[Rfam]
RNA: Lysine riboswitch aptamer
Organism: Blautia hydrogenotrophica
RNA sequence: AAGAAAGAUAGAGGUUGCGUUUUUUAUUAGUAAUCUGUUGGAUGUGGCAGGCACAGAAGAAAACAGAGGAAAGGAAAAAACGCCGAAAGGAUUGCCAGCCUGUUUUGGUGGUUCUUGGGCAUACAGUUAAGAGCUGUGUGACUGUCAUCGUAAGAUGGUGCGCUAUCUAAAGG
Numbered sequence: 001a002a003g004a005a006a007g008a009u010a011g012a013g014g015u016u017g018c019g020u021u022u023u024u025u026a027u028u029a030g031u032a033a034u035c036u037g038u039u040g041g042a043u044g045u046g047g048c049a050g051g052c053a054c055a056g057a058a059g060a061a062a063a064c065a066g067a068g069g070a071a072a073g074g075a076a077a078a079a080a081c082g083c084c085g086a087a088a089g090g091a092u093u094g095c096c097a098g099c100c101u102g103u104u105u106u107g108g109u110g111g112u113u114c115u116u117g118g119g120c121a122u123a124c125a126g127u128u129a130a131g132a133g134c135u136g137u138g139u140g141a142c143u144g145u146c147a148u149c150g151u152a153a154g155a156u157g158g159u160g161c162g163c164u165a166u167c168u169a170a171a172g173g
Base pairs, nucleotide, nucleotide: 006168007167008166009165010164011163017083018082019081020080021079022078023077024076025075034067035066036065037064038063039062087116088115089114090113091112092111093110094109095108096107097106098105117143118142120140121139122138123137124136125135126134127133145158146157147156148155149154